[Rfam]
RNA sequence: UUAAUCUGUGGUGAUGCCAUAACCCCUAGACAUACGCCGGGAUGUUUGUGGGCGCGUUGUGUGCAUUGGCGGGUGUGUUGACGAUAGCCCUCCCGGUGCCGGUCAUAGUGUCCAAC
Numbered sequence: 001u002u003a004a005u006c007u008g009u010g011g012u013g014a015u016g017c018c019a020u021a022a023c024c025c026c027u028a029g030a031c032a033u034a035c036g037c038c039g040g041g042a043u044g045u046u047u048g049u050g051g052g053c054g055c056g057u058u059g060u061g062u063g064c065a066u067u068g069g070c071g072g073g074u075g076u077g078u079u080g081a082c083g084a085u086a087g088c089c090c091u092c093c094c095g096g097u098g099c100c101g102g103u104c105a106u107a108g109u110g111u112c113c114a115a116c
Stems, first nucleotide, its partner, number of pairs: 002115001007110003011106001013104003017101001020098001022097002039079002042076001052064002
Dot-bracket structure: .(....(((.(.(((.(..(.((...............((.(.........((.........))...........).))................)))..)))).).)))....).
The record is a 116-nucleotide RNA from Oppiella nova, which matches "Potassium channel RNA editing signal" in Rfam. It scores 60 bits against the family's covariance model. By type it is a cis-regulatory element. Pairs were carried over by alignment from the consensus structure, which is taken from published work.